[Rfam]
RNA sequence: UGGGAAGGUGAUACAUGAGCAAAAUUAAGCACUGUGUUGCUCAUCACAAACUUUCCCUAUAGCAAAAUGCCUUUUGAUGACCGGGACGAACUGAGAGAAAUCGUAACGGACAGAUACGGGGCAGACAAGA
Dot-bracket structure: .((((((.......((((...(.((........)).)...)))).......))))))..........((((((.......(((..((((...........))))..)))........)))))).......
This 130-nucleotide RNA from Polypterus senegalus belongs to the Rfam family "Small Cajal body specific RNA 8".
Taxonomically the source falls in Polypterus (Eukaryota, Bilateria, Craniata, Vertebrata).
Rfam's curators write: scaRNAs are a specific class of small nuclear RNAs which localise to the Cajal bodies and guide the modification of RNA polymerase II transcribed spliceosomal RNAs U1, U2, U4, U5 and U12. U92 belong to the H/ACA box class of guide RNAs as it has the predicted hairpin-hinge-hairpin-tail structure, conserved H/ACA-box motifs and is found associated with GAR1.
The base pairs follow the family's consensus structure, which is taken from published work.
By type it is a small Cajal body RNA.
For this family Rfam cites "Cajal body-specific small nuclear RNAs: a novel class of 2'-O-methylation and pseudouridylation guide RNAs" (Darzacq et al., EMBO J, 2002).
Rfam 15.1 lists 955 matches to the family in 741 species.
Gene Ontology terms of the family: RNA processing, Cajal body and nucleolus.